RNA sequence: ACCUCCCGUGCCUACUGAACUGGUAUCAGUGUGUCUCUACAAUAACUGGCUCAGUUCAGCAGGAACAGGAG
Numbered sequence: 001a002c003c004u005c006c007c008g009u010g011c012c013u014a015c016u017g018a019a020c021u022g023g024u025a026u027c028a029g030u031g032u033g034u035c036u037c038u039a040c041a042a043u044a045a046c047u048g049g050c051u052c053a054g055u056u057c058a059g060c061a062g063g064a065a066c067a068g069g070a071g
Stems, first nucleotide, its partner, number of pairs: 003071004008066002011063003015059009026049005

The record is a 71-nucleotide sequence from Synaphobranchus kaupii, which matches "mir-24 microRNA precursor family" in Rfam. On this family, see Ambros, Cell 2001: "microRNAs: tiny regulators with great potential". NCBI's taxonomy places the organism under Eukaryota, Neopterygii, Elopocephalai, Elopomorpha, Synaphobranchus. The base pairs follow the family's consensus structure, which was predicted with RNAalifold. Rfam describes the family as follows. This family represents the microRNA (miRNA) mir-24 family. miRNAs are transcribed as ~70nt precursors (modelled here) and subsequently processed by the Dicer enzyme to give a ~22nt product. In this case the mature sequence comes from the 3' arm of the precursor. The extents of the hairpin precursors are not generally known and are estimated based on hairpin prediction. The products are thought to have regulatory roles through complementarity to mRNA. The involvement of Dicer in miRNA processing suggests a relationship with the phenomenon of RNA interference. miRNAs are numbered based on the sequence of the mature RNA. miR-24 has been identified in human and mouse.